Overview: The family of this 62-nucleotide RNA sequence from Carlito syrichta is "U7 small nuclear RNA". The base pairs follow the family's consensus structure, which was predicted with PFOLD. Lineage of the source: Eukaryota > Bilateria > Craniata > Tarsiiformes > Carlito. Rfam describes the family as follows. Animal histone pre-mRNAs are spliced by a different mechanism than nuclear pre-mRNAs and self-splicing introns. This processing involves the U7 snRNP, which contains only one RNA species: U7. The 5' end of U7 RNA is thought to base-pair to a conserved spacer element downstream of the cleavage site in histone pre-mRNA. This family contains a number of annotated U7 pseudogenes.
RNA sequence: UCUUGUUACAGGUCUUUUAGAAUUUGUUUAGCAGGUUUUCCAGUUUUCACUGGGAAAAUAAA
Numbered sequence: 001u002c003u004u005g006u007u008a009c010a011g012g013u014c015u016u017u018u019a020g021a022a023u024u025u026g027u028u029u030a031g032c033a034g035g036u037u038u039u040c041c042a043g044u045u046u047u048c049a050c051u052g053g054g055a056a057a058a059u060a061a062a
Stems, first nucleotide, its partner, number of pairs: 036062001037057005042051003